[Rfam]
RNA sequence: CGUGGGAUGCCGAAGUCGGGUCCCGCAUCAACCACUCGCUGAAAUCAGGAGAUAGUUAAGAUGACC
Numbered sequence: 001c002g003u004g005g006g007a008u009g010c011c012g013a014a015g016u017c018g019g020g021u022c023c024c025g026c027a028u029c030a031a032c033c034a035c036u037c038g039c040u041g042a043a044a045u046c047a048g049g050a051g052a053u054a055g056u057u058a059a060g061a062u063g064a065c066c
Stems, first nucleotide, its partner, number of pairs: 002026007010019003030053001035051003039048003
Shown here is a 66-nucleotide RNA sequence from Stutzerimonas nosocomialis, a member of the family "Repression of heat shock gene expression (ROSE) element". Lineage of the source: Bacteria > Pseudomonadati > Gammaproteobacteria > Pseudomonadales > Stutzerimonas. The match comes from Rfam's covariance-model search (61 bits). The literature on the family includes a 2013 paper in PLoS One by Krajewski et al., "Short ROSE-Like RNA Thermometers Control IbpA Synthesis in Pseudomonas Species". Pairs were carried over by alignment from the consensus structure. It is annotated as an RNA thermoregulator. Rfam links the family to the GO terms response to temperature stimulus and regulation of translation.